[Rfam]
RNA sequence: ACUGUGCCGGGAGGCAACGAUGCUCGUCUUCGAUUCGGUCACCUCAUGAGACGAGUGGAGCCAGUGGUGAGACCGCCCCGAGGGAGG
Numbered sequence: 001a002c003u004g005u006g007c008c009g010g011g012a013g014g015c016a017a018c019g020a021u022g023c024u025c026g027u028c029u030u031c032g033a034u035u036c037g038g039u040c041a042c043c044u045c046a047u048g049a050g051a052c053g054a055g056u057g058g059a060g061c062c063a064g065u066g067g068u069g070a071g072a073c074c075g076c077c078c079c080g081a082g083g084g085a086g087g
Stems, first nucleotide, its partner, number of pairs: 002086002005083001008080004013062003022056008037074002039070005

c-di-GMP-II-GAG riboswitch aptamer: an 87-nucleotide sequence from Deinococcus soli. Its Rfam clan is "c-di-GMP_II riboswitch clan". Its family is annotated with regulation of gene expression and cyclic-di-GMP binding in the Gene Ontology.